[Rfam]
Shown here is a 91-nucleotide RNA sequence from Nitrincola lacisaponensis, a member of the family "t44 RNA". It is annotated as a small RNA.
RNA sequence: UGCUUUGCACACUUAACACACACACUUACCGGCACAGGCUUUCUGGGUGCUGCCUCUGGCAGUGGGAAGAUGGGGUAGGUGGAGGUUAAAC
Numbered sequence: 001u002g003c004u005u006u007g008c009a010c011a012c013u014u015a016a017c018a019c020a021c022a023c024a025c026u027u028a029c030c031g032g033c034a035c036a037g038g039c040u041u042u043c044u045g046g047g048u049g050c051u052g053c054c055u056c057u058g059g060c061a062g063u064g065g066g067a068a069g070a071u072g073g074g075g076u077a078g079g080u081g082g083a084g085g086u087u088a089a090a091c
Stems, first nucleotide, its partner, number of pairs: 023081008035072002039069006049063005
Background: Rfam describes the family as follows. This family consists of a number of bacterial RNA genes of between 135 and 170 bases in length. The t44 gene has been identified in several species of enteric bacteria but homologs have also been identified in Pseudomonas and Coxiella species. The organism belongs to Nitrincola, within Bacteria.